[Rfam]
The record is a 103-nucleotide sequence from Callithrix jacchus, which matches "Y RNA" in Rfam. A reference for the family is Chen et al. (2000), "Ro ribonucleoproteins contribute to the resistance of Deinococcus radiodurans to ultraviolet irradiation", Genes Dev. It scores 54 bits against the family's covariance model. Rfam classes the family as a non-coding RNA gene.
RNA sequence: GGCUGGUCCAAGGGCAGUGGCGUUCACAACUAAUUGAUCACAGCCAGUUCCAGAUUUCUUUUUUUUUUUUUCCAUUCCCAUUGCUUCACCUGAUGAGCCUAAA
Numbered sequence: 001g002g003c004u005g006g007u008c009c010a011a012g013g014g015c016a017g018u019g020g021c022g023u024u025c026a027c028a029a030c031u032a033a034u035u036g037a038u039c040a041c042a043g044c045c046a047g048u049u050c051c052a053g054a055u056u057u058c059u060u061u062u063u064u065u066u067u068u069u070u071u072c073c074a075u076u077c078c079c080a081u082u083g084c085u086u087c088a089c090c091u092g093a094u095g096a097g098c099c100u101a102a103a
Base pairs, nucleotide, nucleotide: 001099002098003097004096006094007093008092010091014087016082017081018080019079020078022077028064029063032060033059